[Rfam]
RNA sequence: AUACGUGUAGGGUGGAGAUGUACAGCCGCUGGUCUGCGUAGCUUUAUUGAAGACGCUUCAUCUCGUCCGCUACCAGCAGCUGAUUCCUCCUCCUGACUAGUGCUUACUGUCACAACAGCGAGCAGGAGACGUCUGUCGCGGCCCAGCCCAACUGGCUGACUGCCGCUUGACGAUGAAGCGAUUUACGACCGUUUCUGACGCGCCUGACACCGACCCCUGAGAGUCGUGUGUGCCGAACGCCCUUUCCAGCAGCACUGGAAACCGA
Numbered sequence: 001a002u003a004c005g006u007g008u009a010g011g012g013u014g015g016a017g018a019u020g021u022a023c024a025g026c027c028g029c030u031g032g033u034c035u036g037c038g039u040a041g042c043u044u045u046a047u048u049g050a051a052g053a054c055g056c057u058u059c060a061u062c063u064c065g066u067c068c069g070c071u072a073c074c075a076g077c078a079g080c081u082g083a084u085u086c087c088u089c090c091u092c093c094u095g096a097c098u099a100g101u102g103c104u105u106a107c108u109g110u111c112a113c114a115a116c117a118g119c120g121a122g123c124a125g126g127a128g129a130c131g132u133c134u135g136u137c138g139c140g141g142c143c144c145a146g147c148c149c150a151a152c153u154g155g156c157u158g159a160c161u162g163c164c165g166c167u168u169g170a171c172g173a174u175g176a177a178g179c180g181a182u183u184u185a186c187g188a189c190c191g192u193u194u195c196u197g198a199c200g201c202g203c204c205u206g207a208c209a210c211c212g213a214c215c216c217c218u219g220a221g222a223g224u225c226g227u228g229u230g231u232g233c234c235g236a237a238c239g240c241c242c243u244u245u246c247c248a249g250c251a252g253c254a255c256u257g258g259a260a261a262c263c264g265a
Base pairs, nucleotide, nucleotide: 014090015089016088017087023082024081025080026079028077029076030075031074032073036070037069038068040044052067053066054065055064091127092126093125094124095123130200131199132198133197135171136170137169138166139165140164141163144158145157146156147155148154175195176194177193178192179191180190207231208230209229210228211226212225213224214223243261244260245259246258247257248256
Notes
The record is a 265-nucleotide sequence from Pseudomonas sp. 21C1, which matches "rne-II RNA" in Rfam. Taxonomically the source falls in Pseudomonas (Bacteria, Pseudomonadati, Pseudomonadales, Pseudomonadaceae). The family's RNA type in Rfam is cis-regulatory element.